RNA sequence: UUAGAAAUCACAGGGGAGUAACUACCACUUAUAUAAGUGGAAUUAAGUCAACAUCGUGGUGAUAUUUUACCUGGCUUAAUUUUAAAAAGUGAGACUUGUGUGUAACAUCUUUUUAUGUUACGCGCAAGUCUUUUAAU
Numbered sequence: 001u002u003a004g005a006a007a008u009c010a011c012a013g014g015g016g017a018g019u020a021a022c023u024a025c026c027a028c029u030u031a032u033a034u035a036a037g038u039g040g041a042a043u044u045a046a047g048u049c050a051a052c053a054u055c056g057u058g059g060u061g062a063u064a065u066u067u068u069a070c071c072u073g074g075c076u077u078a079a080u081u082u083u084a085a086a087a088a089g090u091g092a093g094a095c096u097u098g099u100g101u102g103u104a105a106c107a108u109c110u111u112u113u114u115a116u117g118u119u120a121c122g123c124g125c126a127a128g129u130c131u132u133u134u135a136a137u
Stems, first nucleotide, its partner, number of pairs: 026039003041081010058071005082136006
Rfam assigns this 137-nucleotide RNA from Thermohalobacter berrensis to the family "Manganese Mn2+ riboswitch aptamer (yybP-ykoY)". Lineage of the source: Bacteria > Bacillati > Bacillota > Tissierellales > Thermohalobacter. From the family's description: This RNA was originally discovered in E. coli during a large scale screen and was named SraF. The family was later found to exist upstream of related families of protein genes in many bacteria, including the the yybP and ykoK genes in B. subtilis. The specific functions of these proteins are unknown, but this structured RNA element may be involved in their genetic regulation as a riboswitch. Its family is annotated with manganese ion binding in the Gene Ontology.